Notes: A member of the RNA family "mir-10 microRNA precursor family" from Sipha flava, 79 nucleotides long. The family's consensus secondary structure was predicted with PFOLD. Rfam 15.1 lists 3,853 matches to the family in 853 species.
RNA sequence: CGUGAUCUACCCUGUAGAUCCGGGCUUUUGUAGAAUAUUCUAUACGUUUCAGAAGCUCGUCUCUACAGGUAUCUUACGG
Dot-bracket structure: .((((....((....(((..((((((((((...................))))))))))..)))...))....))))..